Rfam assigns this 78-nucleotide RNA sequence from Flavobacterium succinicans to the family "Flavo-1 RNA".
A search with the family's covariance model found it, with a score of 73 bits.
The source organism's lineage runs through Bacteria, Pseudomonadati, Flavobacteriales, Flavobacteriaceae and Flavobacterium.
By type it is a small RNA.

RNA sequence: UUUUAGCCCCGACAGCAGCGGCAUCCUUUGCUUUUUUUCUUUAGAAAAGCAAAGAUACAGCGGAUGGCGGGACCUAUG
Numbered sequence: 001u002u003u004u005a006g007c008c009c010c011g012a013c014a015g016c017a018g019c020g021g022c023a024u025c026c027u028u029u030g031c032u033u034u035u036u037u038u039c040u041u042u043a044g045a046a047a048a049g050c051a052a053a054g055a056u057a058c059a060g061c062g063g064a065u066g067g068c069g070g071g072a073c074c075u076a077u078g
Stems, first nucleotide, its partner, number of pairs: 009070003013066002018061002023056003029051008
The base pairs follow the family's consensus structure, which is taken from published work.